Rfam assigns this 58-nucleotide RNA sequence from Pristionchus pacificus to the family "mir-8303 microRNA precursor family". NCBI's taxonomy places the organism under Eukaryota, Opisthokonta, Rhabditida, Diplogasteroidea, Pristionchus. The family's consensus secondary structure was predicted with RNAalifold. Rfam's curators put it in the seed alignment.

[Rfam]
RNA sequence: AAGCUGACGGGGUGUAAUGACAAUCAUAUGACGAUGUCAAUGCACCGCGUUGGCUCCA
Numbered sequence: 001a002a003g004c005u006g007a008c009g010g011g012g013u014g015u016a017a018u019g020a021c022a023a024u025c026a027u028a029u030g031a032c033g034a035u036g037u038c039a040a041u042g043c044a045c046c047g048c049g050u051u052g053g054c055u056c057c058a
Stems, first nucleotide, its partner, number of pairs: 002055008011046006018039005024034002